[Rfam]
Overview:
This 468-nucleotide RNA sequence from Acidobacteria bacterium AB60 belongs to the Rfam family "Bacterial RNase P class A". For this family Rfam cites "The Ribonuclease P Database" (Brown, Nucleic Acids Res, 1999). Rfam classes the family as a ribozyme. A search with the family's covariance model found it, with a score of 238 bits. The source organism's lineage runs through Bacteria, Pseudomonadati and Acidobacteriota.

RNA sequence: CAGGAGGACCGGGCGGUCGCUGCCGGCUUCGGCCGGGGGAGGAAAGUCCGAACUCCGCAGGGCAGUGUGCCGGAUAACGUCCGGGACGCGGGCGUCAAGGCCCGUGGACGGCCAGUGCCACAGAGAACAUACCGCCAACCUGGUUUGGUCUUCGGACCGCGCCAGGGGACCGGCCCAAAGGGCAAUCGCCCGGAUGGCCAGUCCCGGUAAGGGUGAAAAGGUGCGGUAAGAGCGCACCGCUCCGACGGUAACGGCGGAGGCAUGGUAAACCCCACACGGAGCAAGACCAAAUAGGGAGGGAAGCGUGGGCCGGGAGCUGGGCCGCGCUGCGCAUCGGCCCGAUGCGUUCAGAGGGCUCCGGAAGGCCUCGAAACCUCCGGGUAGGUCGCUGAUGAGCGUCCGCGGUAACGCGGCGCCUAGAGGAAUGACCGCACACGACAGAAUUCGGCUUACAGGUCCUUUUGCCGA
Dot-bracket structure: (((((((((((.((((((.((.(((((....))))).))....[[[.[[[[[((((........((((((((((.....)))))(.(((((((......)))))))..)((...(((((............(((((...((((((..................................................))))))....)))..)).......((((((.......))))))((((((.((....)).))))).)..)))..)))))))))))))...((((......(((((...................................................(...............)......))))).....))))........((((.((((....))))))))..........))))))...........]]]]]]]].).))))))))))....
Numbered sequence: 001c002a003g004g005a006g007g008a009c010c011g012g013g014c015g016g017u018c019g020c021u022g023c024c025g026g027c028u029u030c031g032g033c034c035g036g037g038g039g040a041g042g043a044a045a046g047u048c049c050g051a052a053c054u055c056c057g058c059a060g061g062g063c064a065g066u067g068u069g070c071c072g073g074a075u076a077a078c079g080u081c082c083g084g085g086a087c088g089c090g091g092g093c094g095u096c097a098a099g100g101c102c103c104g105u106g107g108a109c110g111g112c113c114a115g116u117g118c119c120a121c122a123g124a125g126a127a128c129a130u131a132c133c134g135c136c137a138a139c140c141u142g143g144u145u146u147g148g149u150c151u152u153c154g155g156a157c158c159g160c161g162c163c164a165g166g167g168g169a170c171c172g173g174c175c176c177a178a179a180g181g182g183c184a185a186u187c188g189c190c191c192g193g194a195u196g197g198c199c200a201g202u203c204c205c206g207g208u209a210a211g212g213g214u215g216a217a218a219a220g221g222u223g224c225g226g227u228a229a230g231a232g233c234g235c236a237c238c239g240c241u242c243c244g245a246c247g248g249u250a251a252c253g254g255c256g257g258a259g260g261c262a263u264g265g266u267a268a269a270c271c272c273c274a275c276a277c278g279g280a281g282c283a284a285g286a287c288c289a290a291a292u293a294g295g296g297a298g299g300g301a302a303g304c305g306u307g308g309g310c311c312g313g314g315a316g317c318u319g320g321g322c323c324g325c326g327c328u329g330c331g332c333a334u335c336g337g338c339c340c341g342a343u344g345c346g347u348u349c350a351g352a353g354g355g356c357u358c359c360g361g362a363a364g365g366c367c368u369c370g371a372a373a374c375c376u377c378c379g380g381g382u383a384g385g386u387c388g389c390u391g392a393u394g395a396g397c398g399u400c401c402g403c404g405g406u407a408a409c410g411c412g413g414c415g416c417c418u419a420g421a422g423g424a425a426u427g428a429c430c431g432c433a434c435a436c437g438a439c440a441g442a443a444u445u446c447g448g449c450u451u452a453c454a455g456g457u458c459c460u461u462u463u464g465c466c467g468a
Stems, first nucleotide, its partner, number of pairs: 001464010011453001013432006020039002023036005044451003048448005053281004065277005070084005085109001087106007110272002115270002117266003132212002134208003140201006220238006239261001240259005246253002285387004295378005351367001396416004401412004